[Rfam]
RNA: mir-187 microRNA precursor family
RNA sequence: CUGGCAGAGCCAGAGGCUGCAACACAGGACAUGGGUCCUGUCUCAUCCCACCGCUCGUGUCUUGUGUUGCAGCCAGUGGAGCUGA
Numbered sequence: 001c002u003g004g005c006a007g008a009g010c011c012a013g014a015g016g017c018u019g020c021a022a023c024a025c026a027g028g029a030c031a032u033g034g035g036u037c038c039u040g041u042c043u044c045a046u047c048c049c050a051c052c053g054c055u056c057g058u059g060u061c062u063u064g065u066g067u068u069g070c071a072g073c074c075a076g077u078g079g080a081g082c083u084g085a
Base pairs, nucleotide, nucleotide: 011078012077015074016073017072018071020069021068022067023066024065025064026063027062028061029060030059032057033056034055035054